[Rfam]
RNA sequence: UUUCCAGCCAGGCUUCUGACUGAAGUCCAGCUCUUAUCUGGAUUUAGCCAAAGCAUGGCUGUAAA
Dot-bracket structure: ......(((..(((..((.(((((..((((.......)))).))))).)).)))..)))......

The record is a 65-nucleotide sequence from Mesocricetus auratus, which matches "mir-344 microRNA precursor family" in Rfam. The organism belongs to Mesocricetus, within Eukaryota. The literature on the family includes a 2010 paper in Genes Dev by Chiang et al., "Mammalian microRNAs: experimental evaluation of novel and previously annotated genes". Its family is annotated with RISC complex and miRNA-mediated post-transcriptional gene silencing in the Gene Ontology.